[Rfam]
Nucleotides: 209
Stems, first nucleotide, its partner, number of pairs: 007106002015101004025089005039078003050075006109134007136146003163173003178206004189202004
Number, partner (000 for none) and nucleotide at each position: 001000a002000a003000a004000u005000a006000a007106a008105c009000g010000a011000g012000g013000a014000a015101u016100g017099a018098g019000a020000g021000a022000g023000u024000a025089a026088a027087u028086a029085g030000a031000a032000a033000u034000u035000g036000c037000u038000g039078a040077u041076u042000u043000a044000c045000a046000g047000g048000g049000a050075a051074a052073a053072a054071g055070a056000u057000c058000a059000u060000a061000g062000a063000c064000u065000g066000a067000a068000a069000g070055u071054c072053u073052u074051u075050u076041a077040a078039u079000a080000a081000a082000g083000c084000g085029c086028u087027a088026u089025u090000g091000a092000a093000g094000u095000u096000c097000a098018c099017u100016c101015a102000g103000g104000a105008g106007u107000u108000c109134u110133a111132a112131c113130u114129g115128u116000g117000a118000a119000u120000u121000u122000a123000u124000a125000g126000u127000a128115g129114u130113a131112g132111u133110u134109a135000g136146c137145g138144g139000c140000a141000a142000a143000g144138c145137c146136g147000u148000u149000a150000u151000u152000u153000a154000u155000a156000u157000u158000a159000a160000g161000c162000g163173a164172a165171c166000a167000c168000u169000a170000a171165g172164u173163u174000a175000a176000u177000u178206a179205g180204g181203g182000u183000g184000g185000u186000a187000c188000c189202g190201c191200g192199g193000u194000u195000u196000a197000c198000c199192c200191c201190g202189u203181c204180c205179c206178u207000u208000c209000a
The family of this 209-nucleotide RNA sequence from Clostridium fallax is "T-box leader".
NCBI's taxonomy places the organism under Bacteria, Bacillota, Eubacteriales, Clostridiaceae, Clostridium.
Gene Ontology term of the family: tRNA binding.
Pairs were carried over by alignment from the consensus structure, which is taken from published work.